[Rfam]
The family of this 60-nucleotide sequence from Ictalurus punctatus is "mir-203 microRNA precursor family".
RNA sequence: AGUGGUCCUAAACAUUUCACAAUUUUGAGAUAGAACUGUUGAACUGUUAAGAACCACUGC
Numbered sequence: 001a002g003u004g005g006u007c008c009u010a011a012a013c014a015u016u017u018c019a020c021a022a023u024u025u026u027g028a029g030a031u032a033g034a035a036c037u038g039u040u041g042a043a044c045u046g047u048u049a050a051g052a053a054c055c056a057c058u059g060c
Stems, first nucleotide, its partner, number of pairs: 001058006008051002011048004016043004
The family's consensus secondary structure was predicted with RNAalifold.
The source organism's lineage runs through Eukaryota, Craniata, Ostariophysi, Characiphysae and Ictalurus.
The sequence is in the family's curated seed alignment.